[Rfam]
RNA sequence: GCCAACAUGUUGCCUUUAUCUGCAUUUGCACCUGCACCUAUACUUCGCUCUCUCUCUCGUACAUAAUAGUUUGGAUGAGCAAACCAGCUUUAAAAGCAUGGCAAAAGCUAUAUACAUGGGGAGAUGAACAGAUUAACAGGUGCAGGUGCGGUUGCAGGUGAAUGCCAUCUUGGC
Numbered sequence: 001g002c003c004a005a006c007a008u009g010u011u012g013c014c015u016u017u018a019u020c021u022g023c024a025u026u027u028g029c030a031c032c033u034g035c036a037c038c039u040a041u042a043c044u045u046c047g048c049u050c051u052c053u054c055u056c057u058c059g060u061a062c063a064u065a066a067u068a069g070u071u072u073g074g075a076u077g078a079g080c081a082a083a084c085c086a087g088c089u090u091u092a093a094a095a096g097c098a099u100g101g102c103a104a105a106a107g108c109u110a111u112a113u114a115c116a117u118g119g120g121g122a123g124a125u126g127a128a129c130a131g132a133u134u135a136a137c138a139g140g141u142g143c144a145g146g147u148g149c150g151g152u153u154g155c156a157g158g159u160g161a162a163u164g165c166c167a168u169c170u171u172g173g174c
Base pairs, nucleotide, nucleotide: 001174002173003172004171005170007168008167009166012165013164015162016161017160018159019158020157021156022155023154024153026151027150028149029148030147031146032145033144034143035142036141037140038139039138056079057078058077059076060075062073063072065070
Dot-bracket structure: (((((.(((..((.((((((((((.((((((((((((((................(((((.((.(....).)).)))))..........................................................)))))))))))))).)))))))))).))))).)))))